[Rfam]
About this RNA: DABA-DC-AT RNA: a 155-nucleotide RNA sequence from Vibrio sp. N418.
RNA sequence: GCAAUCUCGGUAGUUAUUUAUUUUGAUACUCUGGGGGAGACGCGUAGCUCGCAUUCAAGUUGAGUGCUGAUACGUAGGGUAGGUAUCGAUAAUCCGAUUAUCGAUAGACGGGAUACUAAUGUCGUAAGUGCGGCAUGUUAAUGGGAAACCCAACA
Dot-bracket structure: .....(((((....................)))))......(((((....(((...........)))...)))))........((((((((((...)))))))))).............((((((....))))))....................
Numbered sequence: 001g002c003a004a005u006c007u008c009g010g011u012a013g014u015u016a017u018u019u020a021u022u023u024u025g026a027u028a029c030u031c032u033g034g035g036g037g038a039g040a041c042g043c044g045u046a047g048c049u050c051g052c053a054u055u056c057a058a059g060u061u062g063a064g065u066g067c068u069g070a071u072a073c074g075u076a077g078g079g080u081a082g083g084u085a086u087c088g089a090u091a092a093u094c095c096g097a098u099u100a101u102c103g104a105u106a107g108a109c110g111g112g113a114u115a116c117u118a119a120u121g122u123c124g125u126a127a128g129u130g131c132g133g134c135a136u137g138u139u140a141a142u143g144g145g146a147a148a149c150c151c152a153a154c155a
Stems, first nucleotide, its partner, number of pairs: 006035005042075005051067003084106010120135006